[Rfam]
This 112-nucleotide sequence from Luteimicrobium subarcticum belongs to the Rfam family "SAM (S-adenosyl methionine) riboswitch aptamer".
The source organism's lineage runs through Bacteria, Bacillati, Actinomycetota, Actinomycetes and Luteimicrobium.
Rfam links the family to the GO terms regulation of gene expression and S-adenosylmethionine metabolic process.
RNA sequence: GGUCAUGAGCUCCAGCCCCUCGGCCCCGGCCGGCUGGACGGCAACCCCGCUCCGCGGCGGGGUGCCCCGGGUGAUGACCCGGCCCGUCCUGCGUGACGGGCAACCAGCGCGC
Number, nucleotide and partner (000 for none) at each position: 001g079002g078003u077004c076005a000006u000007g000008a000009g039010c000011u038012c037013c036014a035015g034016c033017c000018c000019c000020u000021c000022g031023g030024c000025c000026c000027c000028g000029g000030c023031c022032g000033g016034c015035u014036g013037g012038a011039c009040g066041g065042c064043a000044a000045c062046c061047c060048c000049g000050c056051u000052c000053c000054g000055c000056g050057g000058c000059g000060g047061g046062g045063u000064g042065c041066c040067c000068c000069g000070g000071g000072u000073g000074a000075u000076g004077a003078c002079c001080c000081g000082g101083c100084c099085c098086g097087u096088c095089c000090u000091g000092c000093g000094u000095g088096a087097c086098g085099g084100g083101c082102a000103a000104c000105c000106a000107g000108c000109g000110c000111g000112c000